[Rfam]
RNA sequence: AAGCCGUUGCGUGACUGGCGAAACGAUGGAGCACCAUCAGGGAGCGCGACCGGGAAACGCCGUUCGCCUGGGCAAAUCUU
Numbered sequence: 001a002a003g004c005c006g007u008u009g010c011g012u013g014a015c016u017g018g019c020g021a022a023a024c025g026a027u028g029g030a031g032c033a034c035c036a037u038c039a040g041g042g043a044g045c046g047c048g049a050c051c052g053g054g055a056a057a058c059g060c061c062g063u064u065c066g067c068c069u070g071g072g073c074a075a076a077u078c079u080u
Stems, first nucleotide, its partner, number of pairs: 004052001006050007015041002017068005026037004059073003

Rfam assigns this 80-nucleotide RNA sequence from Devosia sp. MC521 to the family "ZMP/ZTP riboswitch aptamer (pfl RNA motif)". NCBI's taxonomy places the organism under Bacteria, Pseudomonadati, Pseudomonadota, Hyphomicrobiales, Devosia.